[Rfam]
RNA sequence: UGAAAACGCCCAUUAGAGGCGUUGUUCCCCAGCCCGGAACGACUUUUCCGUAUUCGGAAUUA
Numbered sequence: 001u002g003a004a005a006a007c008g009c010c011c012a013u014u015a016g017a018g019g020c021g022u023u024g025u026u027c028c029c030c031a032g033c034c035c036g037g038a039a040c041g042a043c044u045u046u047u048c049c050g051u052a053u054u055c056g057g058a059a060u061u062a
Stems, first nucleotide, its partner, number of pairs: 018046002021043008
RNA: Plastid-psbN 5UTR RNA
Organism: Myxacorys almedinensis